A member of the RNA family "Small nucleolar RNA SNORD22" from Neogale vison, 129 nucleotides long. For this family Rfam cites "A mammalian gene with introns instead of exons generating stable RNA products" (Tycowski et al., Nature, 1996). It is annotated as a C/D-box small nucleolar RNA. Its family is annotated with nucleolus and RNA processing in the Gene Ontology.
[Rfam]
Nucleotides: 129
Base pairs, nucleotide, nucleotide: 001128002127003126004125
Number, partner (000 for none) and nucleotide at each position: 001128u002127c003126c004125c005000a006000g007000u008000g009000a010000a011000g012000a013000a014000a015000c016000a017000u018000c019000c020000g021000g022000g023000g024000a025000c026000a027000u028000a029000c030000u031000u032000c033000u034000u035000g036000u037000c038000c039000c040000g041000u042000c043000c044000c045000a046000g047000u048000c049000c050000c051000a052000a053000a054000u055000u056000c057000u058000a059000u060000a061000a062000a063000g064000a065000u066000a067000a068000a069000c070000c071000c072000u073000c074000u075000g076000g077000g078000g079000c080000u081000g082000a083000g084000u085000g086000g087000g088000g089000g090000a091000a092000g093000g094000a095000g096000g097000a098000a099000a100000g101000u102000u103000u104000a105000u106000u107000g108000a109000a110000g111000g112000a113000c114000g115000a116000a117000a118000u119000g120000u121000c122000u123000g124000a125004g126003g127002g128001a129000g